[Rfam]
RNA sequence: AAUACUACACUAACCAAAGCAUUGACGAGAUUUCUGAAUGCAGUAAGUGCUUGGUGUUGGUGUAGUGUUG
Numbered sequence: 001a002a003u004a005c006u007a008c009a010c011u012a013a014c015c016a017a018a019g020c021a022u023u024g025a026c027g028a029g030a031u032u033u034c035u036g037a038a039u040g041c042a043g044u045a046a047g048u049g050c051u052u053g054g055u056g057u058u059g060g061u062g063u064a065g066u067g068u069u070g
Stems, first nucleotide, its partner, number of pairs: 004066008013057002015054001017052007025044002
Background: The record is a 70-nucleotide RNA from Salarias fasciatus, which matches "miR-430 microRNA precursor family" in Rfam. The base pairs follow the family's consensus structure, which was predicted with RNAalifold. The literature on the family includes a 2005 paper in Science by Giraldez et al., "MicroRNAs regulate brain morphogenesis in zebrafish".